[Rfam]
Background: The record is a 138-nucleotide sequence, which matches "poplar-1 RNA" in Rfam. Rfam classes the family as a small RNA.

RNA sequence: UUGAAGCCGAGGGGCCUAGUGGAAACGUCAGGUGACGUCACACGGAAACGGUAACUAGUGAGCCCGCUCUACAACCUUGUCUGAUGACGGUGUAGUGAAAUACUAGGUCAUGCGAAUGGCCAAUCAGAUAGUAGCAAG
Numbered sequence: 001u002u003g004a005a006g007c008c009g010a011g012g013g014g015c016c017u018a019g020u021g022g023a024a025a026c027g028u029c030a031g032g033u034g035a036c037g038u039c040a041c042a043c044g045g046a047a048a049c050g051g052u053a054a055c056u057a058g059u060g061a062g063c064c065c066g067c068u069c070u071a072c073a074a075c076c077u078u079g080u081c082u083g084a085u086g087a088c089g090g091u092g093u094a095g096u097g098a099a100a101u102a103c104u105a106g107g108u109c110a111u112g113c114g115a116a117u118g119g120c121c122a123a124u125c126a127g128a129u130a131g132u133a134g135c136a137a138g
Base pairs, nucleotide, nucleotide: 012065013064014063015062018056019055020054031043032041033040034039067097070094071093072092073091081127082126083125084124101133102132103131104130106121107120108119109118110117